RNA sequence: UUGGUUUAAAUCAAUGUGAGUCUACAGUUUGACAAUAGUACUUGCAUAAAGUGGUGGGACAUAAAAUGAUUUCAUCCAA
Numbered sequence: 001u002u003g004g005u006u007u008a009a010a011u012c013a014a015u016g017u018g019a020g021u022c023u024a025c026a027g028u029u030u031g032a033c034a035a036u037a038g039u040a041c042u043u044g045c046a047u048a049a050a051g052u053g054g055u056g057g058g059a060c061a062u063a064a065a066a067u068g069a070u071u072u073c074a075u076c077c078a079a
Base pairs, nucleotide, nucleotide: 001079002078003077004076006074008072009071010070011069012068013067015065017063018062022057023056024055025053026052028050029049030048031047
RNA: MIR5269 microRNA precursor family
Organism: Medicago truncatula